[Rfam]
RNA: tRNA
RNA sequence: CUAUGGUGUAGUGGUUAGCACUCUGGACUUUGAAUCCAGCGACCUGGGUUCGACUCCCGGUAG
Numbered sequence: 001c002u003a004u005g006g007u008g009u010a011g012u013g014g015u016u017a018g019c020a021c022u023c024u025g026g027a028c029u030u031u032g033a034a035u036c037c038a039g040c041g042a043c044c045u046g047g048g049u050u051c052g053a054c055u056c057c058c059g060g061u062a063g
Base pairs, nucleotide, nucleotide: 001063002062003061006021007020008019009018023039024038025037026036027035044060045059046058047057048056